[Rfam]
RNA sequence: GGUUUCAACUGAAAAAGUUAUCAACAACAAAGUUGUAGAACUGAUCAAGAUCUACAACUUUAAUUUUGUUCAUUUCUUCAUCCGAGAAAAUGAUAGUAACAUUGUUCUCAAAAUCUACAUAUCUCUCUUAUAGUUUAUGAAACCAUAUGAGAGAUAUGUAGAUUUUGUGAACAAUGUUACUAUCAUUUUCUCAGAUGAAGAAAUGACCAAAAUCAAAGUUGUACAUCUUGAUGAGUUGUACAACUUUCAUGUUCAUGACUUUUUCAUAUGAAUUC
Dot-bracket structure: .............((((((((.((.(...((((((((.((((.((((((((.(.(((((((.(((((..((((((.(((((..(((((((((.((((((.(((((((.((((.((.((((((........(.((((...)))).)........)))))).)).)))).))))))).)))))).)))))))))..))))).))))))..))))).))))))).).)))))))).)))).))))))))...).)).)))))))).............
RNA: MIR821 microRNA precursor family